[Rfam]
RNA sequence: AGCAGUAGCAGCAAAGUAAAGUGAGAAUCUUUACCGCCGAAGGGGCUAGGGAUCCUUGGCAAUGUUCGUCAGCCAAGGGUUAGUCGAUCCUAAGACCAGUCGUAAUUCGAACUGGCCGAAAGGGAAACAGGUUAAUAUUCCUGUACAAUGAAGAUACAUGCGGCAACGCUAGAUUUAAUUUCUGACGCUUUGAGGUAGGCCGAGUGGGAUUGUCGUCCCAUUUAAUUGUUGAAGCCUAAGGAGAGCUGUAAUAGCGAGAAUUAGGUGUAUGCUUGAAUAGCCGUCCUUAUGGAUGGUUCGGUUGAUCCAUGGAGUCCGUGAAAAGGGAGUUAUUUGAAUUCUUUGUUUUCGUACCGAGAUCCGACACAGGUGCCCCUAGGUGAGAAGCCUAAGGCGUGU
Numbered sequence: 001a002g003c004a005g006u007a008g009c010a011g012c013a014a015a016g017u018a019a020a021g022u023g024a025g026a027a028u029c030u031u032u033a034c035c036g037c038c039g040a041a042g043g044g045g046c047u048a049g050g051g052a053u054c055c056u057u058g059g060c061a062a063u064g065u066u067c068g069u070c071a072g073c074c075a076a077g078g079g080u081u082a083g084u085c086g087a088u089c090c091u092a093a094g095a096c097c098a099g100u101c102g103u104a105a106u107u108c109g110a111a112c113u114g115g116c117c118g119a120a121a122g123g124g125a126a127a128c129a130g131g132u133u134a135a136u137a138u139u140c141c142u143g144u145a146c147a148a149u150g151a152a153g154a155u156a157c158a159u160g161c162g163g164c165a166a167c168g169c170u171a172g173a174u175u176u177a178a179u180u181u182c183u184g185a186c187g188c189u190u191u192g193a194g195g196u197a198g199g200c201c202g203a204g205u206g207g208g209a210u211u212g213u214c215g216u217c218c219c220a221u222u223u224a225a226u227u228g229u230u231g232a233a234g235c236c237u238a239a240g241g242a243g244a245g246c247u248g249u250a251a252u253a254g255c256g257a258g259a260a261u262u263a264g265g266u267g268u269a270u271g272c273u274u275g276a277a278u279a280g281c282c283g284u285c286c287u288u289a290u291g292g293a294u295g296g297u298u299c300g301g302u303u304g305a306u307c308c309a310u311g312g313a314g315u316c317c318g319u320g321a322a323a324a325g326g327g328a329g330u331u332a333u334u335u336g337a338a339u340u341c342u343u344u345g346u347u348u349u350c351g352u353a354c355c356g357a358g359a360u361c362c363g364a365c366a367c368a369g370g371u372g373c374c375c376c377u378a379g380g381u382g383a384g385a386a387g388c389c390u391a392a393g394g395c396g397u398g399u
Stems, first nucleotide, its partner, number of pairs: 016034006035396004043375004049355002054078006063071002085351003089123002094117001096115004100110003127144005147347008181327003187315006194308002198303005203222006228272002235265005245255003286291001361370002377391004
The family of this 399-nucleotide part of an RNA from Methanobacterium sp. A39 is "Archaeal large subunit ribosomal RNA". A reference for the family is Yusupov et al. (2001), "Crystal structure of the ribosome at 5.5 A resolution", Science. The organism belongs to Methanobacterium, within Archaea.